RNA sequence: CUUUGUUGCGGCGAUGGAUUCCGCCAGGGCCCUGCCCGAACCGCCGUCCGGCUGAUGACUCCUGCUCCUGU
Dot-bracket structure: .........((((..[[[.[[)))).................(((....)))....]].]]].........
Shown here is a 71-nucleotide sequence from Propionibacterium cyclohexanicum, a member of the family "Fluoride riboswitch aptamer (crcB RNA motif)". The base pairs follow the family's consensus structure, which is taken from published work. The literature on the family includes a 2012 paper in Science by Baker et al., "Widespread genetic switches and toxicity resistance proteins for fluoride". Lineage of the source: Bacteria > Bacillati > Actinomycetota > Propionibacteriales > Propionibacterium. Gene Ontology terms of the family: positive regulation of gene expression and response to fluoride.